RNA: MIR7993 microRNA precursor family
RNA sequence: UUAAGUUCAUCACAUAAAAUAUUUUCACUCCUUAAUUAUACGCAUCAACCUCAAAUAGAAAUAUCAUGGAUUUUAUGGCUUAUUAAGGCGAAUGCGUAGAACUAAAGGAGAUGACAUAUUUUAUGUGAUUAGCUUAAUU
Numbered sequence: 001u002u003a004a005g006u007u008c009a010u011c012a013c014a015u016a017a018a019a020u021a022u023u024u025u026c027a028c029u030c031c032u033u034a035a036u037u038a039u040a041c042g043c044a045u046c047a048a049c050c051u052c053a054a055a056u057a058g059a060a061a062u063a064u065c066a067u068g069g070a071u072u073u074u075a076u077g078g079c080u081u082a083u084u085a086a087g088g089c090g091a092a093u094g095c096g097u098a099g100a101a102c103u104a105a106a107g108g109a110g111a112u113g114a115c116a117u118a119u120u121u122u123a124u125g126u127g128a129u130u131a132g133c134u135u136a137a138u139u
Stems, first nucleotide, its partner, number of pairs: 001137007009129014024114002028110006034103001036101002039098007049088003
Dot-bracket structure: (((((((.((((((((((((((.((..(((((((.((.(((((((...(((..................................)))...))))))).)).).))))))..)).)))))))))))))).)))))))..